[Rfam]
Rfam assigns this 206-nucleotide RNA from Clostridium estertheticum to the family "raiA RNA". Pairs were carried over by alignment from the consensus structure, which is taken from published work. NCBI's taxonomy places the organism under Bacteria, Bacillati, Clostridia, Clostridiaceae, Clostridium. It is annotated as a riboswitch. It scores 197 bits against the family's covariance model.

RNA sequence: GUAAGUUAGGUUUGUGGUUGAAAGUCGAGGCCAGUCGCAGGCGAAACGAUCCACGUAAGUUAAACAAAGUUUAGUGAGCAUGGUGCGGCUUAGAGGUUAGUCCUGCCGUUUUAACGAGCGAGAGUGUUAGUAGUGAGAAGGUAAUUCUGGGUAGCAAAAGCUCCAGCAGGCGAGUGUGGGGGCAAAGACCAGGUCAACUAACUUAC
Numbered sequence: 001g002u003a004a005g006u007u008a009g010g011u012u013u014g015u016g017g018u019u020g021a022a023a024g025u026c027g028a029g030g031c032c033a034g035u036c037g038c039a040g041g042c043g044a045a046a047c048g049a050u051c052c053a054c055g056u057a058a059g060u061u062a063a064a065c066a067a068a069g070u071u072u073a074g075u076g077a078g079c080a081u082g083g084u085g086c087g088g089c090u091u092a093g094a095g096g097u098u099a100g101u102c103c104u105g106c107c108g109u110u111u112u113a114a115c116g117a118g119c120g121a122g123a124g125u126g127u128u129a130g131u132a133g134u135g136a137g138a139a140g141g142u143a144a145u146u147c148u149g150g151g152u153a154g155c156a157a158a159a160g161c162u163c164c165a166g167c168a169g170g171c172g173a174g175u176g177u178g179g180g181g182g183c184a185a186a187g188a189c190c191a192g193g194u195c196a197a198c199u200a201a202c203u204u205a206c
Stems, first nucleotide, its partner, number of pairs: 001206009012197003015191005028177001030175001031041001033090007050083002058075001060073001062071002081184001102170005107120005124163001126161002133155002139148003